[Rfam]
RNA: Small nucleolar RNA SNORD81
Organism: Coregonus sp. 'balchen'
RNA sequence: GUGAGCAAAUGAUGAUUCAAUUCUUGAACUCUCUCCCUGAGAUCUUGAUGACGAUAAGAAUACUGAUUCUCCC
Numbered sequence: 001g002u003g004a005g006c007a008a009a010u011g012a013u014g015a016u017u018c019a020a021u022u023c024u025u026g027a028a029c030u031c032u033c034u035c036c037c038u039g040a041g042a043u044c045u046u047g048a049u050g051a052c053g054a055u056a057a058g059a060a061u062a063c064u065g066a067u068u069c070u071c072c073c
Stems, first nucleotide, its partner, number of pairs: 001073001003071003007067001